This 60-nucleotide RNA sequence from Clostridium sp. FS41 belongs to the Rfam family "GP20-b RNA". It is annotated as a cis-regulatory element. Lineage of the source: Bacteria > Bacillati > Bacillota > Clostridia > Clostridium. It scores 40 bits against the family's covariance model.
[Rfam]
RNA sequence: UGCCAGUUGUGGCGUAAAAACAGCAGGUGCCAGCGGAGCAACCCGCGAUAACAAAGCGUA
Number, nucleotide and partner (000 for none) at each position: 001u014002g013003c012004c011005a000006g024007u023008u022009g021010u020011g004012g003013c002014g001015u000016a000017a000018a000019a000020a010021c009022a008023g007024c006025a000026g000027g000028u000029g000030c000031c000032a000033g046034c045035g044036g000037a000038g000039c000040a000041a000042c000043c000044c035045g034046c033047g000048a000049u000050a000051a000052c000053a000054a000055a000056g000057c000058g000059u000060a000